[Rfam]
Notes:
Shown here is a 70-nucleotide RNA sequence, a member of the family "Cyano-1 RNA". Rfam's curators put it in the seed alignment. It is annotated as a small RNA.
RNA sequence: UAUUGUGUGAGGAGUGCCGAGCGCCUCUUCAGGGUCGAAACAAGGACAGACUCCUGCAACGCGUUCCACU
Numbered sequence: 001u002a003u004u005g006u007g008u009g010a011g012g013a014g015u016g017c018c019g020a021g022c023g024c025c026u027c028u029u030c031a032g033g034g035u036c037g038a039a040a041c042a043a044g045g046a047c048a049g050a051c052u053c054c055u056g057c058a059a060c061g062c063g064u065u066c067c068a069c070u
Stems, first nucleotide, its partner, number of pairs: 020065005028059001031055003034051003
Dot-bracket structure: ...................(((((...(..((((((............))).)))...).))))).....